[Rfam]
RNA: Guanidine-II riboswitch aptamer (mini-ykkC)
RNA sequence: GUGGCGGGACGACCCGCCACUUUUCCCGUUUCGUGGGGACGGCCCUG
Numbered sequence: 001g002u003g004g005c006g007g008g009a010c011g012a013c014c015c016g017c018c019a020c021u022u023u024u025c026c027c028g029u030u031u032c033g034u035g036g037g038g039a040c041g042g043c044c045c046u047g
Stems, first nucleotide, its partner, number of pairs: 001020008034047005